Background:
Small nucleolar RNA SNORA41: a 135-nucleotide sequence from Ictidomys tridecemlineatus. Rfam classes the family as an H/ACA-box small nucleolar RNA. Rfam 15.1 lists 676 matches to the family in 522 species. NCBI's taxonomy places the organism under Eukaryota, Dipnotetrapodomorpha, Mammalia, Sciuridae, Ictidomys. From the family's description: ACA41 is a member of the H/ACA class of snoRNA that guide the sites of modification of uridines to pseudouridines.
RNA sequence: UUCCACAGCUACUGGUCUGCAGCUGUUCUAAUGGUAGCAGUUGUAGCAUUCCUCUGUGGGAAAUAAACUGUUAUACAAUUAUAUGCCUCUUUCUUAGCCAAAGAGAAAGUGGGCACAUGUGUGUGACAGACACAU
Numbered sequence: 001u002u003c004c005a006c007a008g009c010u011a012c013u014g015g016u017c018u019g020c021a022g023c024u025g026u027u028c029u030a031a032u033g034g035u036a037g038c039a040g041u042u043g044u045a046g047c048a049u050u051c052c053u054c055u056g057u058g059g060g061a062a063a064u065a066a067a068c069u070g071u072u073a074u075a076c077a078a079u080u081a082u083a084u085g086c087c088u089c090u091u092u093c094u095u096a097g098c099c100a101a102a103g104a105g106a107a108a109g110u111g112g113g114c115a116c117a118u119g120u121g122u123g124u125g126a127c128a129g130a131c132a133c134a135u
Base pairs, nucleotide, nucleotide: 003059004058005057006056017046018045019044020043021042022041023040024039025038073124074123075122076121077120086113087112088111089109090108091107092106093105094104